Annotation: Fibro-purF RNA: a 75-nucleotide RNA. Rfam classes the family as a cis-regulatory element. The sequence is in the family's curated seed alignment.
RNA sequence: GUCCGCUUCCUUGCUUGCACCCGUCCGGGUGGGCUACGACCCCUGAGGUAGAGGAAGCAACCAUUUCAAAGAGGC
Numbered sequence: 001g002u003c004c005g006c007u008u009c010c011u012u013g014c015u016u017g018c019a020c021c022c023g024u025c026c027g028g029g030u031g032g033g034c035u036a037c038g039a040c041c042c043c044u045g046a047g048g049u050a051g052a053g054g055a056a057g058c059a060a061c062c063a064u065u066u067c068a069a070a071g072a073g074g075c
Stems, first nucleotide, its partner, number of pairs: 005058007018031005039049003